Rfam assigns this 99-nucleotide RNA from Kocuria palustris to the family "TPP riboswitch aptamer (THI element)".

RNA sequence: AGGCACGACACGGGGUGCCGCCCGAGCAGGCGGCUGAGAGAACACCCGUCGAACCUGAACUAGUUCGCACUAGCGGAGGGAUUGUCGCCUUGAUGCACA
Numbered sequence: 001a002g003g004c005a006c007g008a009c010a011c012g013g014g015g016u017g018c019c020g021c022c023c024g025a026g027c028a029g030g031c032g033g034c035u036g037a038g039a040g041a042a043c044a045c046c047c048g049u050c051g052a053a054c055c056u057g058a059a060c061u062a063g064u065u066c067g068c069a070c071u072a073g074c075g076g077a078g079g080g081a082u083u084g085u086c087g088c089c090u091u092g093a094u095g096c097a098c099a
Stems, first nucleotide, its partner, number of pairs: 006087005011048004016042001017034005054079003060073004